[Rfam]
RNA sequence: GGUUUUCUGAAUUCAUGCCGAGAUUUCAUCUGAAACCAAACCACUAUAGCUGAUGGAAUUUCAAAGACAAAUAAAGUG
Numbered sequence: 001g002g003u004u005u006u007c008u009g010a011a012u013u014c015a016u017g018c019c020g021a022g023a024u025u026u027c028a029u030c031u032g033a034a035a036c037c038a039a040a041c042c043a044c045u046a047u048a049g050c051u052g053a054u055g056g057a058a059u060u061u062c063a064a065a066g067a068c069a070a071a072u073a074a075a076g077u078g
Base pairs, nucleotide, nucleotide: 002077003076004075005074006073008071012067013066016063017062020061021060022059024058025057026056027055028054029053030052